[Rfam]
The record is a 179-nucleotide RNA from Thalassococcus sp. S3, which matches "Ruegeria cis52 sRNA" in Rfam. Rfam classes the family as a small RNA. The base pairs follow the family's consensus structure, which was predicted with RNAfold. On this family, see Rivers et al., Front Microbiol 2016: "Experimental Identification of Small Non-Coding RNAs in the Model Marine Bacterium Ruegeria pomeroyi DSS-3". Rfam links the family to the GO term regulation of gene expression. Rfam 15.1 lists 277 matches to the family in 275 species. NCBI's taxonomy places the organism under Bacteria, Pseudomonadati, Alphaproteobacteria, Rhodobacterales, Thalassococcus.
RNA sequence: UUCUCAGCGCGUGUUUCAGCACGAUAUUGGGGAAAGAGACGCCCUUCAGCCGCGCGGUACGGAUAUAUUGCGCCGUCAUCACCUCGGUCAUCGAGGCGCGGGUCAUCCGGGCGAUAUAGCCCAUCCCGUAAAGCGCGAUCGUAAGCACCGGCAGGAAGAAAUUUUCAAAUGUCGCAUUC
Numbered sequence: 001u002u003c004u005c006a007g008c009g010c011g012u013g014u015u016u017c018a019g020c021a022c023g024a025u026a027u028u029g030g031g032g033a034a035a036g037a038g039a040c041g042c043c044c045u046u047c048a049g050c051c052g053c054g055c056g057g058u059a060c061g062g063a064u065a066u067a068u069u070g071c072g073c074c075g076u077c078a079u080c081a082c083c084u085c086g087g088u089c090a091u092c093g094a095g096g097c098g099c100g101g102g103u104c105a106u107c108c109g110g111g112c113g114a115u116a117u118a119g120c121c122c123a124u125c126c127c128g129u130a131a132a133g134c135g136c137g138a139u140c141g142u143a144a145g146c147a148c149c150g151g152c153a154g155g156a157a158g159a160a161a162u163u164u165u166c167a168a169a170u171g172u173c174g175c176a177u178u179c
Stems, first nucleotide, its partner, number of pairs: 004141001006139001008137005014131002016128001019126001021124001028123004040111001042109001046105001048103001050101005055075004060070003082096005145179001147177001149174005154165004